[Rfam]
Shown here is an 81-nucleotide RNA from Anolis carolinensis, a member of the family "mir-17 microRNA precursor family".
RNA sequence: CUCGCAGUGUCAAAGUGCUCAUAGUGCAGGUAGUUAAUGCACCCAAAUCUACUGUAAUGUGGGCACUUACAGUACUGCCGG
Numbered sequence: 001c002u003c004g005c006a007g008u009g010u011c012a013a014a015g016u017g018c019u020c021a022u023a024g025u026g027c028a029g030g031u032a033g034u035u036a037a038u039g040c041a042c043c044c045a046a047a048u049c050u051a052c053u054g055u056a057a058u059g060u061g062g063g064c065a066c067u068u069a070c071a072g073u074a075c076u077g078c079c080g081g
Stems, first nucleotide, its partner, number of pairs: 004078004009073002013068011025056003029053005
This family represents the microRNA (miRNA) precursor mir-17, family, which includes mir-20, mir-91, and mir-103. miRNAs are transcribed as ~70nt precursors (modelled here) and subsequently processed by the Dicer enzyme to give a ~22nt product. In this case the mature sequence comes from the 3' arm of the precursor. The extents of the hairpin precursors are not generally known and are estimated based on hairpin prediction. A reference for the family is Liu et al. (2025), "Structural Features Within Precursor microRNA-20a Regulate Dicer-TRBP Processing", J Mol Biol. The base pairs follow the family's consensus structure, which was predicted with RNAalifold. NCBI's taxonomy places the organism under Eukaryota, Deuterostomia, Euteleostomi, Squamata, Anolis.